[Rfam]
This 64-nucleotide sequence from Plasmodium falciparum belongs to the Rfam family "Selenocysteine insertion sequence 1".
A search with the family's covariance model found it, with a score of 37 bits.
From the family's description: The incorporation of selenocysteine into a protein sequence is directed by an in-frame UGA codon (usually a stop codon) within the coding region of the mRNA. Selenoprotein mRNAs contain a conserved secondary structure in the 3' UTR that is required for the distinction of UGA stop from UGA selenocysteine. The selenocysteine insertion sequence (SECIS) is around 60 nt in length and adopts a hairpin structure which is sufficiently well-defined and conserved to act as a computational screen for selenoprotein genes.
RNA sequence: AUUUUAUAAAUGAUGAAAAUGUUUCAAACCAUUAUGUGGCAGACAUUUUUUGAGAAAUCAAAAU
Numbered sequence: 001a002u003u004u005u006a007u008a009a010a011u012g013a014u015g016a017a018a019a020u021g022u023u024u025c026a027a028a029c030c031a032u033u034a035u036g037u038g039g040c041a042g043a044c045a046u047u048u049u050u051u052g053a054g055a056a057a058u059c060a061a062a063a064u
Stems, first nucleotide, its partner, number of pairs: 001064005015050010029039003
Pairs were carried over by alignment from the consensus structure, which is taken from published work.
It is annotated as a cis-regulatory element.